Source information
The family of this 560-nucleotide part of an RNA from Schaalia sp. 19OD2882 is "Bacterial small subunit ribosomal RNA". The family's consensus secondary structure is taken from published work.
RNA sequence: UGUUCGGAGAGUUUGAUCCUGGCUCAGGACGAACGCUGGCGGCGUGCUUAACACAUGCAAGUCGAACGGGCUGCUCUGAGCUUGCUUGGGGUGGUUAGUGGCGAACGGGUGAGUAACACGUGAGUAACCUGCCCUCUUCUUUGGGAUAACGGUCGGAAACGGCUGCUAAUACCGGGUAUUCACUUUGCCUCGCAUGGGGUGGGGUGGAAAGGGUUUUUUCUGGUGGGGGAUGGGCUCGCGGCCUAUCAGCUUGUUGGUGGGGUGAUGGCUUACCAAGGCUUUGACGGGUAACCGGCCUGAGAGGGUGACCGGUCACAUUGGGACUGAGAUACGGCCCAGACUCCUACGGGAGGCAGCAGUGGGGAAUUUUGCACAAUGGGCGCAAGCCUGAUGCAGCGACGCCGCGUGAGGGAUGGAGGCCUUCGGGUUGUGAACCUCUUUCGCCCAUGGUCAAGGCUAGUUUUUGUUCUAGUUGAGGGUAGUGGGUAAAGAAGCGCCGGCUAACUACGUGCCAGCAGCCGCGGUAAUACGUAGGGCGCGAGCGUUGUCCGGAAUUAUUG
Dot-bracket structure: ........(((((.......))))).((((.((((((.(((((((((....(((.(((..(((..((......(((((((....)))))))......)))))......(((.......(((((((..((...(((((.(.((((.....((((((....))))))......)))).....(((((((.(((....))).)))))))....(((.....))).).)))))..))))))))).(((....(((..((((((((.......)))))))))))......)))..((((((((....))))...))))))).(((((............))))).((((....))))...)))))).).....(.(((...(((((....))))).)))).)).))))))..((((......((((....)))).....))))...(((((((...(.....(((........))).....)....))))))...)..(((((......(((((.....((....)).......)))))))))).))))))))))..........

On this family, see Yusupov et al., Science 2001: "Crystal structure of the ribosome at 5.5 A resolution". Clan: SSU clan.